The family of this 52-nucleotide RNA from Rubrivivax gelatinosus is "nhaA-I RNA". The organism belongs to Rubrivivax gelatinosus, within Bacteria. The sequence is in the family's curated seed alignment.
RNA sequence: GGGUGCCGUGGCGACCGCCGCGGCAGGUUCAUGCGCAGGUCGGGCCGCCGCG
Dot-bracket structure: ....((((((((....)))))))).........(((.(((......))))))